[Rfam]
RNA sequence: UUGAAGGGCUUCUGCCACACACUCUGGGCAACUGGAUUGUUCUUCAUGUGGGAUCAAAUUCUAGAGAUUUCAGAAGCAUCAUUUUUUGAUAAUUUGGCAGAUGGUAAUCAUUAGUCCCAAUGUCUAC
Numbered sequence: 001u002u003g004a005a006g007g008g009c010u011u012c013u014g015c016c017a018c019a020c021a022c023u024c025u026g027g028g029c030a031a032c033u034g035g036a037u038u039g040u041u042c043u044u045c046a047u048g049u050g051g052g053a054u055c056a057a058a059u060u061c062u063a064g065a066g067a068u069u070u071c072a073g074a075a076g077c078a079u080c081a082u083u084u085u086u087u088g089a090u091a092a093u094u095u096g097g098c099a100g101a102u103g104g105u106a107a108u109c110a111u112u113a114g115u116c117c118c119a120a121u122g123u124c125u126a127c
Stems, first nucleotide, its partner, number of pairs: 008077005013019002020048002026042006049072007096124003100121001102119003107115002
RNA: U11 spliceosomal RNA